[Rfam]
RNA: Group II catalytic intron D1-D4-6
Organism: Desulfuribacillus stibiiarsenatis
RNA sequence: GAAGUCCCUGUUGGACAAGGUCUAACCAACCACCCAUACCGAGUGUUGCGCCGAAGCUGGUAACAGUUAGGUGAAGCGUACACAGGGAACUAUAUAGACCACAGGGGAGACCGUAAUCCUUGAAGCAUAUUCAGCCCCGUAAAUCGUGUGCCUAGAAAUAGGUUAGUUGCAGAUGGCGACAUGUUUAACGUCAUGGAAGCCAAUACAGAGAAGUCGUAAAAGGUGAGACUUUCGAGGGUCUGUCGGGGUCAGAGAACG
Numbered sequence: 001g002a003a004g005u006c007c008c009u010g011u012u013g014g015a016c017a018a019g020g021u022c023u024a025a026c027c028a029a030c031c032a033c034c035c036a037u038a039c040c041g042a043g044u045g046u047u048g049c050g051c052c053g054a055a056g057c058u059g060g061u062a063a064c065a066g067u068u069a070g071g072u073g074a075a076g077c078g079u080a081c082a083c084a085g086g087g088a089a090c091u092a093u094a095u096a097g098a099c100c101a102c103a104g105g106g107g108a109g110a111c112c113g114u115a116a117u118c119c120u121u122g123a124a125g126c127a128u129a130u131u132c133a134g135c136c137c138c139g140u141a142a143a144u145c146g147u148g149u150g151c152c153u154a155g156a157a158a159u160a161g162g163u164u165a166g167u168u169g170c171a172g173a174u175g176g177c178g179a180c181a182u183g184u185u186u187a188a189c190g191u192c193a194u195g196g197a198a199g200c201c202a203a204u205a206c207a208g209a210g211a212a213g214u215c216g217u218a219a220a221a222g223g224u225g226a227g228a229c230u231u232u233c234g235a236g237g238g239u240c241u242g243u244c245g246g247g248g249u250c251a252g253a254g255a256a257c258g
Base pairs, nucleotide, nucleotide: 012036013035014034019031020030021029023226025224026223039086040085043083044082045081046080047078048077049073050072051071052070055068056067057066058065059064131252134249135248136247137246138245139244169243170242171241172240173239174238175201176200177199180195181194182193183192206237210233211231212230213229214228215227